The family of this 75-nucleotide sequence from Salvator merianae is "Small nucleolar RNA SNORD47". The family's RNA type in Rfam is C/D-box small nucleolar RNA. For this family Rfam cites "Site-specific ribose methylation of preribosomal RNA: a novel function for small nucleolar RNAs" (Kiss-Laszlo et al., Cell, 1996).

RNA sequence: AACCAAUGAUGAGACUAGAUUCUGCCAGAUGAAACUUUAUGAUAUUAAUCUUAUUCCGUUCCAUUUACUGAGGUU
Number, nucleotide and partner (000 for none) at each position: 001a075002a074003c073004c072005a000006a000007u000008g000009a000010u000011g000012a000013g000014a000015c000016u000017a000018g000019a000020u000021u000022c000023u000024g000025c000026c000027a000028g000029a000030u000031g000032a000033a000034a000035c000036u000037u000038u000039a000040u000041g000042a000043u000044a000045u000046u000047a000048a000049u000050c000051u000052u000053a000054u000055u000056c000057c000058g000059u000060u000061c000062c000063a000064u000065u000066u000067a000068c000069u000070g000071a000072g004073g003074u002075u001